About this RNA:
This 90-nucleotide sequence from Amaricoccus solimangrovi belongs to the Rfam family "Glycine riboswitch aptamer". Pairs were carried over by alignment from the consensus structure. This family represents the bacterial glycine riboswitch.

[Rfam]
RNA sequence: AAGGCAUCGCCGGGAGAAGGCGGGGCGACCCGCCGCCGAAGGAGCAACCGCGCCCCGGAAACUCUCAGGUCCAAGGACCGGCGAUGUCUC
Numbered sequence: 001a002a003g004g005c006a007u008c009g010c011c012g013g014g015a016g017a018a019g020g021c022g023g024g025g026c027g028a029c030c031c032g033c034c035g036c037c038g039a040a041g042g043a044g045c046a047a048c049c050g051c052g053c054c055c056c057g058g059a060a061a062c063u064c065u066c067a068g069g070u071c072c073a074a075g076g077a078c079c080g081g082c083g084a085u086g087u088c089u090c
Base pairs, nucleotide, nucleotide: 006085007084008083009082010081011080012079013078020033021032022031023030035070036069037068038066039065042064043063044062048058049057